This 79-nucleotide sequence from Ceratopteris richardii belongs to the Rfam family "mir-1 microRNA precursor family".
This family represents the microRNA (miRNA) mir-1 family. miRNAs are transcribed as ~70nt precursors (modelled here) and subsequently processed by the Dicer enzyme to give a ~22nt product. In this case the mature sequence comes from the 3' arm of the precursor. The extents of the hairpin precursors are not generally known and are estimated based on hairpin prediction.
NCBI's taxonomy places the organism under Eukaryota, Tracheophyta, Polypodiopsida, Polypodiidae, Ceratopteris.
Pairs were carried over by alignment from the consensus structure, which was predicted with RNAalifold.
The match comes from Rfam's covariance-model search (50 bits).
Rfam 15.1 lists 4,474 matches to the family in 965 species.

RNA sequence: UCCAACAAUGCAUUGUUCAACAUAUUCCAUAUGCUAUAUGUUAUAACUUAUGGAAUAUGUUGAACAAUGCAUUGUUGGA
Numbered sequence: 001u002c003c004a005a006c007a008a009u010g011c012a013u014u015g016u017u018c019a020a021c022a023u024a025u026u027c028c029a030u031a032u033g034c035u036a037u038a039u040g041u042u043a044u045a046a047c048u049u050a051u052g053g054a055a056u057a058u059g060u061u062g063a064a065c066a067a068u069g070c071a072u073u074g075u076u077g078g079a
Base pairs, nucleotide, nucleotide: 007073008072009071010070011069012068013067014066015065016064017063018062019061020060021059022058023057024056025055027053028052029051030050031049